[Rfam]
Nucleotides: 104
Stems, first nucleotide, its partner, number of pairs: 019089007029049004034044001058080001060078005
Number, partner (000 for none) and nucleotide at each position: 001000g002000u003000a004000a005000c006000a007000u008000u009000u010000u011000c012000a013000u014000a015000u016000a017000u018000c019089a020088c021087u022086c023085g024084u025083a026000u027000a028000u029049g030048c031047u032046c033000g034044g035000u036000a037000a038000u039000a040000u041000g042000g043000u044034c045000g046032g047031a048030g049029u050000g051000u052000u053000u054000c055000u056000a057000c058080c059000a060078g061077g062076u063075u064074c065000c066000c067000a068000u069000u070000g071000a072000a073000a074064g075063a076062a077061c078060u079000g080058g081000a082000c083025u084024a085023c086022g087021a088020g089019u090000u091000g092000a093000a094000g095000u096000a097000u098000u099000g100000u101000c102000a103000u104000u